Nucleotides: 353
Base pairs, nucleotide, nucleotide: 001349002348003347004346005345006344007343008342009341010340011338012318013317014316015315016314017313018312020040021039023037024036025035026034027033028032045336046335047334049333050332051331052330053329054222055221056220057219061255062254063253064252066218067217068216069215070214071085072084073083074082075081086100087098088097089096090095101213102212106211107210108207109206123152124151125148126147127146131144132143133142134141135140160178161177162176163175164174165173179202180200181199182198183197184196185194186193187192226275227274228273229272236266237265238264239263240262241261246260247259248258249257250256282301283300284299285298286297287296288295289294
Number, partner (000 for none) and nucleotide at each position: 001349c002348a003347a004346g005345u006344c007343a008342g009341c010340c011338a012318g013317g014316c015315a016314a017313u018312c019000g020040c021039c022000g023037c024036u025035c026034g027033g028032u029000a030000u031000a032028a033027c034026c035025g036024g037023g038000g039021g040020g041000a042000g043000g044000a045336a046335a047334g048000u049333c050332c051331g052330g053329g054222c055221u056220c057219c058000g059000c060000a061255g062254g063253g064252c065000a066218g067217a068216g069215u070214g071085c072084c073083u074082g075081u076000u077000a078000a079000u080000u081075g082074c083073a084072g085071g086100g087098c088097g089096g090095c091000g092000u093000g094000a095090g096089c097088c098087g099000a100086c101213g102212g103000a104000a105000a106211g107210u108207g109206c110000a111000g112000c113000a114000g115000a116000g117000a118000g119000c120000a121000g122000a123152c124151c125148g126147c127146c128000u129000a130000a131144g132143u133142c134141g135140c136000u137000u138000c139000g140135g141134c142133g143132a144131c145000c146127g147126g148125c149000a150000a151124g152123g153000g154000u155000g156000a157000a158000a159000g160178g161177g162176u163175g164174c165173g166000g167000u168000a169000a170000g171000a172000g173165c174164g175163c176162a177161c178160c179202g180200c181199a182198u183197g184196g185194c186193u187192g188000g189000u190000a191000a192187c193186a194185g195000u196184c197183c198182a199181u200180g201000g202179c203000a204000c205000g206109g207108u208000a209000a210107a211106c212102c213101c214070c215069a216068c217067u218066c219057g220056g221055a222054g223000c224000a225000a226275g227274a228273c229272c230000a231000a232000a233000u234000a235000g236266g237265g238264u239263u240262c241261c242000u243000u244000c245000a246260g247259g248258c249257g250256u251000g252064g253063c254062c255061c256250g257249c258248g259247c260246u261241g262240g263239a264238a265237c266236c267000g268000g269000g270000u271000a272229g273228g274227u275226c276000g277000c278000u279000u280000g281000a282301g283300c284299g285298u286297g287296c288295u289294g290000g291000u292000g293000a294289c295288a296287g297286u298285a299284c300283g301282c302000c303000u304000a305000g306000a307000u308000g309000a310000a311000u312018g313017a314016u315015u316014g317013c318012c319000c320000a321000c322000g323000a324000c325000a326000g327000a328000a329053c330052c331051c332050g333049g334047c335046u336045u337000a338011u339000c340010g341009g342008c343007u344006g345005a346004c347003u348002u349001g350000c351000g352000c353000c